[Rfam]
RNA: Small nucleolar RNA SNORD59
RNA sequence: CCUUUGCUGAUGAUCAAACGUGAUGACUUUCGUUCUUCUGAGCGUGCUGAAGCCACUACUAUGGUCUGAGGAGG
Dot-bracket structure: (((.(................................................................).)))
Numbered sequence: 001c002c003u004u005u006g007c008u009g010a011u012g013a014u015c016a017a018a019c020g021u022g023a024u025g026a027c028u029u030u031c032g033u034u035c036u037u038c039u040g041a042g043c044g045u046g047c048u049g050a051a052g053c054c055a056c057u058a059c060u061a062u063g064g065u066c067u068g069a070g071g072a073g074g
Stems, first nucleotide, its partner, number of pairs: 001074003005070001